[Rfam]
RNA: MIR5565 microRNA precursor family
Organism: Sorghum bicolor
RNA sequence: GUUGUUGGAUUCGCAUCAAUCCACAUGUGUUGGGGUGGAUUGAAGUGAAACUUGAACUAAAUUCCACUUUAAUCCACUCCAACACAUGUGGAUUGAGGGGAAUCCGACA
Number, nucleotide and partner (000 for none) at each position: 001g000002u000003u000004g108005u107006u106007g105008g104009a103010u102011u101012c100013g000014c098015a000016u096017c095018a094019a093020u092021c091022c090023a089024c088025a087026u086027g085028u084029g083030u082031u081032g080033g000034g000035g077036u076037g075038g074039a073040u072041u071042g070043a069044a000045g067046u066047g065048a000049a000050a000051c000052u000053u000054g000055a000056a000057c000058u000059a000060a000061a000062u000063u000064c000065c047066a046067c045068u000069u043070u042071a041072a040073u039074c038075c037076a036077c035078u000079c000080c032081a031082a030083c029084a028085c027086a026087u025088g024089u023090g022091g021092a020093u019094u018095g017096a016097g000098g014099g000100g012101a011102a010103u009104c008105c007106g006107a005108c004109a000